[Rfam]
Source information:
Acido-Lenti-1 RNA: a 45-nucleotide RNA sequence from Pontiella desulfatans.
RNA sequence: CCUUGGACUGCGUCCAAGGCUAAAAUAUGUAGUGCCAUUGGCACU
Numbered sequence: 001c002c003u004u005g006g007a008c009u010g011c012g013u014c015c016a017a018g019g020c021u022a023a024a025a026u027a028u029g030u031a032g033u034g035c036c037a038u039u040g041g042c043a044c045u
Base pairs, nucleotide, nucleotide: 001019002018003017004016005015006014007013008012032044033043034042035041036040

Lineage of the source: Bacteria > Kiritimatiellota > Kiritimatiellia > Kiritimatiellales > Pontiella. A search with the family's covariance model found it, with a score of 38 bits.